[Rfam]
RNA sequence: UAUCUGCGAUGAGAUGGGAAGUUGCUGUUACUAAUUCAGGUAAUUCCCAUGGAGUAUGUCACGAUCAAAGAAUCGGACGACAA
Numbered sequence: 001u002a003u004c005u006g007c008g009a010u011g012a013g014a015u016g017g018g019a020a021g022u023u024g025c026u027g028u029u030a031c032u033a034a035u036u037c038a039g040g041u042a043a044u045u046c047c048c049a050u051g052g053a054g055u056a057u058g059u060c061a062c063g064a065u066c067a068a069a070g071a072a073u074c075g076g077a078c079g080a081c082a083a
Stems, first nucleotide, its partner, number of pairs: 014050003018046003025039003057082004063078001065076002
Description:
Shown here is an 83-nucleotide RNA from Eubacterium callanderi, a member of the family "S10-Clostridia ribosomal protein leader". The family's RNA type in Rfam is cis-regulatory leader. A search with the family's covariance model found it, with a score of 45 bits. NCBI's taxonomy places the organism under Bacteria, Bacillati, Clostridia, Eubacteriaceae, Eubacterium.